Background: The family of this 179-nucleotide sequence from Pangasianodon hypophthalmus is "Small nucleolar RNA SNORA81".
RNA sequence: UCUUCCAUCCAAAAGAACUGUGCUGAAAUUACAGAAUCCAGGUCUCCUGGUUGAUGUAAUAAUGCUAGCAGAGUGAAAGUAUGGAAGAAGACGAACGUGCGCUGCGCCGAAAAUGAAACGCGGUCGGACCGCUUUCUUAAUGUCCAGUGGCCUUUGUUUCAAGGUUCAGUGCAACAGCU
Numbered sequence: 001u002c003u004u005c006c007a008u009c010c011a012a013a014a015g016a017a018c019u020g021u022g023c024u025g026a027a028a029u030u031a032c033a034g035a036a037u038c039c040a041g042g043u044c045u046c047c048u049g050g051u052u053g054a055u056g057u058a059a060u061a062a063u064g065c066u067a068g069c070a071g072a073g074u075g076a077a078a079g080u081a082u083g084g085a086a087g088a089a090g091a092c093g094a095a096c097g098u099g100c101g102c103u104g105c106g107c108c109g110a111a112a113a114u115g116a117a118a119c120g121c122g123g124u125c126g127g128a129c130c131g132c133u134u135u136c137u138u139a140a141u142g143u144c145c146a147g148u149g150g151c152c153u154u155u156g157u158u159u160c161a162a163g164g165u166u167c168a169g170u171g172c173a174a175c176a177g178c179u
Base pairs, nucleotide, nucleotide: 018073019072021070022069023068024067025066028063029062030061031060038050039049040048041047042046098173099172100171101170102169103168104167106165121150123148126145127144128143
Pairs were carried over by alignment from the consensus structure, which was predicted with WAR. Gene Ontology terms of the family: RNA processing and nucleolus.